[Rfam]
RNA sequence: CACGCACCGUCUGGCCUCGAAUCCGAACGUCCCCCUCGCCUUUUACUAGGGAGACCCGGGGGUCAGGUGGAUAUGCGUGCUACCAAUCUUUCUCGGCCCGCAAGGGUU
Numbered sequence: 001c002a003c004g005c006a007c008c009g010u011c012u013g014g015c016c017u018c019g020a021a022u023c024c025g026a027a028c029g030u031c032c033c034c035c036u037c038g039c040c041u042u043u044u045a046c047u048a049g050g051g052a053g054a055c056c057c058g059g060g061g062g063u064c065a066g067g068u069g070g071a072u073a074u075g076c077g078u079g080c081u082a083c084c085a086a087u088c089u090u091u092c093u094c095g096g097c098c099c100g101c102a103a104g105g106g107u108u
Stems, first nucleotide, its partner, number of pairs: 003077004008069011029055003033051004

Notes: The family of this 108-nucleotide RNA sequence from Puccinia coronata is "U5 spliceosomal RNA". Rfam classes the family as a spliceosomal small nuclear RNA. A search with the family's covariance model found it, with a score of 46 bits. NCBI's taxonomy places the organism under Eukaryota, Fungi, Pucciniomycotina, Pucciniaceae, Puccinia coronata var. avenae. The family's consensus secondary structure is taken from published work.